THF (Tetrahydrofolate) riboswitch aptamer: a 98-nucleotide RNA sequence.
For this family Rfam cites "A eubacterial riboswitch class that senses the coenzyme tetrahydrofolate" (Ames et al., Chem Biol, 2010).
The family's consensus secondary structure is taken from published work.
RNA sequence: GCAGGAUAGUUGCUUCGGACUCAGUGCUCCGGGGACGGGGAGUUGUCCCGGGGACGAAAAGCCAGAUGGCUUACGGUGCGGCAUCCGCAUCCCGCUGC
Numbered sequence: 001g002c003a004g005g006a007u008a009g010u011u012g013c014u015u016c017g018g019a020c021u022c023a024g025u026g027c028u029c030c031g032g033g034g035a036c037g038g039g040g041a042g043u044u045g046u047c048c049c050g051g052g053g054a055c056g057a058a059a060a061g062c063c064a065g066a067u068g069g070c071u072u073a074c075g076g077u078g079c080g081g082c083a084u085c086c087g088c089a090u091c092c093c094g095c096u097g098c
Base pairs, nucleotide, nucleotide: 001098002097003096004095009085011083012082013081014080016078017077024055025054027053028052029051030050031049032048033047034046038092039091040090042088059072060071061070062069

Description: Its family is annotated with tetrahydrofolate metabolic process in the Gene Ontology. Tetrahydrofolate (THF) riboswitch was first reported for Ames et al. as an RNA motif in 5' untranslated (5'-UTR)regions of folate transport and biosynthesis genes in Firmicutes genomes.